About this RNA:
Shown here is an 88-nucleotide sequence from Mycoplasmopsis glycophila, a member of the family "tRNA". The match comes from Rfam's covariance-model search (54 bits).

RNA sequence: GGUCAAUUACCCAAGAGGCUGAAGGGACCGCUCUCGAAAAGCGGCAGGGGAGGCAACUCCCGCGAGGGUUCAAAUCCCUCAUUGACCG
Numbered sequence: 001g002g003u004c005a006a007u008u009a010c011c012c013a014a015g016a017g018g019c020u021g022a023a024g025g026g027a028c029c030g031c032u033c034u035c036g037a038a039a040a041g042c043g044g045c046a047g048g049g050g051a052g053g054c055a056a057c058u059c060c061c062g063c064g065a066g067g068g069u070u071c072a073a074a075u076c077c078c079u080c081a082u083u084g085a086c087c088g
Stems, first nucleotide, its partner, number of pairs: 001087007010026003028044005064080005
From the family's description: Transfer RNA (tRNA) molecules are approximately 80 nucleotides in length. Rfam links the family to the GO term triplet codon-amino acid adaptor activity.